The family of this 86-nucleotide sequence from Amycolatopsis acidicola is "ZMP/ZTP riboswitch aptamer (pfl RNA motif)". A search with the family's covariance model found it, with a score of 43 bits. The organism belongs to Amycolatopsis, within Bacteria.
RNA sequence: CACGCCAAAUGCGACUGGCGCCGUAGAGGUGGAGCACCACCGGGAAGCGACCGACGAGGCCGGCACCGCGCGCCUGGGUGUGGCCG
Numbered sequence: 001c002a003c004g005c006c007a008a009a010u011g012c013g014a015c016u017g018g019c020g021c022c023g024u025a026g027a028g029g030u031g032g033a034g035c036a037c038c039a040c041c042g043g044g045a046a047g048c049g050a051c052c053g054a055c056g057a058g059g060c061c062g063g064c065a066c067c068g069c070g071c072g073c074c075u076g077g078g079u080g081u082g083g084c085c086g
Stems, first nucleotide, its partner, number of pairs: 003056002006053001010049003015044002017074005029040004063081005
Dot-bracket structure: ..[[.[...[[[..[[(((((.......((((....))))..]]..]]]...].]]......[[[[[..)))))..]]]]].....